[Rfam]
RNA sequence: CAAAUUUUAUCGCUGAGUUUCCUGCAAGCAGGGGAACGGGGGAACCAAAAAGGUACAUGUGCGCGGUGUGAGAGCCGUUCACAUGGAUCUGGGGUGAAUCUCGGUAUAUGAACAACAUGGAGUUCAUAUACCGGGUAGGGCGACUCUCACCGCCCGAAUCCGUCAGCUAACCUCGUAAGCGUGGCAGUUCGAACAA
Number, nucleotide and partner (000 for none) at each position: 001c000002a000003a000004a000005u000006u000007u000008u000009a000010u000011c181012g180013c179014u178015g000016a000017g000018u035019u034020u033021c032022c031023u030024g000025c000026a000027a000028g000029c000030a023031g022032g021033g020034g019035a018036a176037c175038g174039g173040g172041g171042g000043a000044a000045c000046c091047a090048a000049a000050a000051a000052g000053g000054u000055a000056c000057a000058u000059g000060u000061g000062c000063g000064c000065g000066g000067u000068g000069u000070g000071a000072g000073a000074g000075c000076c000077g000078u000079u000080c000081a000082c000083a000084u000085g000086g000087a000088u000089c000090u047091g046092g161093g160094g159095u000096g000097a000098a000099u000100c135101u134102c133103g132104g131105u130106a129107u128108a127109u126110g125111a124112a123113c122114a000115a000116c000117a000118u000119g000120g000121a000122g113123u112124u111125c110126a109127u108128a107129u106130a105131c104132c103133g102134g101135g100136u000137a000138g155139g154140g153141c152142g000143a000144c000145u000146c000147u000148c000149a000150c000151c000152g141153c140154c139155c138156g000157a000158a000159u094160c093161c092162g000163u000164c000165a000166g000167c000168u000169a000170a000171c041172c040173u039174c038175g037176u036177a000178a014179g013180c012181g011182u000183g000184g000185c000186a000187g000188u000189u000190c000191g000192a000193a000194c000195a000196a000
A member of the RNA family "c-di-AMP riboswitch aptamer (ydaO/yuaA leader)" from Paenibacillus sp. GP183, 196 nucleotides long.
NCBI's taxonomy places the organism under Bacteria, Bacillati, Caryophanales, Paenibacillaceae, Paenibacillus.
About the family: This family represents a conserved RNA structure found upstream of the ydaO and yuaA genes in Bacillus subtilis and related genes in other bacteria.